[Rfam]
RNA sequence: CAUCGGCUGCGGGCCCCUCUGGCGGGCGCUCCUCAGCGCCCGUGAUGUCGGAGCCGAUGC
Numbered sequence: 001c002a003u004c005g006g007c008u009g010c011g012g013g014c015c016c017c018u019c020u021g022g023c024g025g026g027c028g029c030u031c032c033u034c035a036g037c038g039c040c041c042g043u044g045a046u047g048u049c050g051g052a053g054c055c056g057a058u059g060c
Stems, first nucleotide, its partner, number of pairs: 006054003010050003022043008